[Rfam]
RNA sequence: GCUGCGUAAAUGCUUCUUAGCCCAAGAGAGCUAGUAUCAUCCCUGCGUUGGCAUAAGUCUCAUAGUAGAACGAUAUGGUAAAGUGGAUUGUAAUCACUUGAGAAUAUGAAAGUAUUUAAGAGAGAAAUCCAAUAGUUAUAUCGUAAUGGUUAGCCGUAUGACCGCAGGAGAAUUACCUGAAACAUGAUGGAAUAUAUGUGGACUCAUUAGAAUUCACAUUAUUUUUUACGGUUCU
Number, nucleotide and partner (000 for none) at each position: 001g052002c051003u000004g048005c047006g046007u045008a044009a000010a040011u039012g038013c000014u036015u000016c000017u034018u033019a032020g031021c030022c028023c000024a000025a000026g000027a000028g022029a000030g021031c020032u019033a018034g017035u000036a014037u000038c012039a011040u010041c000042c000043c000044u008045g007046c006047g005048u004049u000050g000051g002052c001053a000054u000055a000056a000057g000058u000059c000060u000061c000062a000063u000064a000065g000066u000067a000068g000069a000070a000071c143072g142073a141074u140075a139076u138077g137078g136079u000080a000081a000082a000083g000084u131085g130086g129087a128088u127089u126090g000091u000092a000093a000094u123095c122096a000097c120098u119099u118100g117101a116102g115103a000104a000105u000106a000107u000108g000109a000110a000111a000112g000113u000114a000115u102116u101117u100118a099119a098120g097121a000122g095123a094124g000125a000126a089127a088128u087129c086130c085131a084132a000133u000134a000135g000136u078137u077138a076139u075140a074141u073142c072143g071144u000145a000146a000147u164148g163149g162150u161151u160152a000153g232154c231155c230156g229157u228158a227159u184160g151161a150162c149163c148164g147165c000166a178167g177168g176169a174170g000171a000172a000173u000174u169175a000176c168177c167178u166179g000180a000181a000182a000183c000184a159185u000186g000187a000188u000189g225190g224191a223192a222193u221194a220195u000196a000197u218198g217199u216200g215201g214202a213203c000204u000205c000206a000207u000208u000209a000210g000211a000212a000213u202214u201215c200216a199217c198218a197219u000220u194221a193222u192223u191224u190225u189226u000227u158228a157229c156230g155231g154232u153233u000234c000235u000

This 235-nucleotide RNA belongs to the Rfam family "IS605-orfB-I RNA". The sequence is in the family's curated seed alignment.